[Rfam]
RNA sequence: GUUUUGGUGGCAGUGAAGUUAGUGAUUGUGGGUGGUGGAGACAAUCAGCUAACUACACUGCCUGCAAACC
Numbered sequence: 001g002u003u004u005u006g007g008u009g010g011c012a013g014u015g016a017a018g019u020u021a022g023u024g025a026u027u028g029u030g031g032g033u034g035g036u037g038g039a040g041a042c043a044a045u046c047a048g049c050u051a052a053c054u055a056c057a058c059u060g061c062c063u064g065c066a067a068a069c070c
Base pairs, nucleotide, nucleotide: 003068004067005066006065009062010061012059013058014057015056017054018053019052020051021050022049023047024046025045026044027043028042029041

The record is a 70-nucleotide RNA from Zonotrichia albicollis, which matches "mir-34 microRNA precursor family" in Rfam.
Clan: mir-34 clan.
Pairs were carried over by alignment from the consensus structure, which was predicted with RNAalifold.
NCBI's taxonomy places the organism under Eukaryota, Craniata, Gnathostomata, Aves, Zonotrichia.